[Rfam]
RNA sequence: GAAUGGAGGAGUGCGGCCUGGGGCAGCCGCUGAACCCUUGGUUCAGCGACUAUCUCAGGGCGCGCUCUUAUCGUGU
Numbered sequence: 001g002a003a004u005g006g007a008g009g010a011g012u013g014c015g016g017c018c019u020g021g022g023g024c025a026g027c028c029g030c031u032g033a034a035c036c037c038u039u040g041g042u043u044c045a046g047c048g049a050c051u052a053u054c055u056c057a058g059g060g061c062g063c064g065c066u067c068u069u070a071u072c073g074u075g076u
Stems, first nucleotide, its partner, number of pairs: 003074004007069009017059007025051002028048009

The record is a 76-nucleotide RNA sequence from Bombyx mori, which matches "mir-2830 microRNA precursor family" in Rfam.
Rfam's curators put it in the seed alignment.